A member of the RNA family "U5 spliceosomal RNA" from Lactuca sativa, 118 nucleotides long. The family's consensus secondary structure is taken from published work.
Nucleotides: 118
Stems, first nucleotide, its partner, number of pairs: 003077004008067003012063007027053008098118006
Number, partner (000 for none) and nucleotide at each position: 001000u002000g003077c004076c005075a006074u007000g008067u009066g010065a011000u012063g013062a014061g015060c016059a017058c018057a019000a020000a021000u022000u023000g024000a025000a026000c027053u028052a029051u030050u031049c032048u033047u034046u035000c036000g037000c038000c039000u040000u041000u042000u043000a044000c045000u046034a047033a048032a049031g050030a051029a052028u053027a054000c055000c056000g057018u058017g059016u060015g061014u062013u063012c064000u065010u066009c067008a068000c069000a070000u071000c072000a073000a074006a075005u076004g077003g078000c079000a080000u081000a082000c083000c084000c085000c086000u087000a088000u089000u090000u091000u092000u093000g094000u095000a096000g097000a098118g099117g100116u101115g102114u103113u104000c105000u106000u107000u108000u109000a110000u111000g112000u113103a114102a115101u116100a117099c118098c